[Rfam]
RNA: Bacterial RNase P class A
RNA sequence: GAGGUGUAGCAGAGGGUUGCUUGCUAAAACAAGAGGAAAGUCCGAGCUGCAUUGAGAUAAGGUUCUAUUUAACGAAUAGCUAUCGUAAGAUAAGGGAAAGUGCCACAGAAAAUAAACCGCUUGAAAAAGUAAGGGUGAAACGGCGGUGUAAGAGACCACCGGAUUCUUAGCAAUAAGAAUCGCUAGGUAAACCCAACCUGCAGCAAGAAGGAAUUGGUAAAAAUCUCAAGUAAAAUGCCUUCGCGUGAGCGUUAUUGUGAAAUAAUCGCCAAGAUAAAUGACCCUUUAAUACAGAACUCGGCUUAUAGCUACACCUCUUCU
Numbered sequence: 001g002a003g004g005u006g007u008a009g010c011a012g013a014g015g016g017u018u019g020c021u022u023g024c025u026a027a028a029a030c031a032a033g034a035g036g037a038a039a040g041u042c043c044g045a046g047c048u049g050c051a052u053u054g055a056g057a058u059a060a061g062g063u064u065c066u067a068u069u070u071a072a073c074g075a076a077u078a079g080c081u082a083u084c085g086u087a088a089g090a091u092a093a094g095g096g097a098a099a100g101u102g103c104c105a106c107a108g109a110a111a112a113u114a115a116a117c118c119g120c121u122u123g124a125a126a127a128a129g130u131a132a133g134g135g136u137g138a139a140a141c142g143g144c145g146g147u148g149u150a151a152g153a154g155a156c157c158a159c160c161g162g163a164u165u166c167u168u169a170g171c172a173a174u175a176a177g178a179a180u181c182g183c184u185a186g187g188u189a190a191a192c193c194c195a196a197c198c199u200g201c202a203g204c205a206a207g208a209a210g211g212a213a214u215u216g217g218u219a220a221a222a223a224u225c226u227c228a229a230g231u232a233a234a235a236u237g238c239c240u241u242c243g244c245g246u247g248a249g250c251g252u253u254a255u256u257g258u259g260a261a262a263u264a265a266u267c268g269c270c271a272a273g274a275u276a277a278a279u280g281a282c283c284c285u286u287u288a289a290u291a292c293a294g295a296a297c298u299c300g301g302c303u304u305a306u307a308g309c310u311a312c313a314c315c316u317c318u319u320c321u
Stems, first nucleotide, its partner, number of pairs: 001317010011306001012286007020033004038304003042301005047203004060199005065079005080094001081092004095194002100192002102188003117134002119130004142160002145157003161183001162181008207242004249269003252265005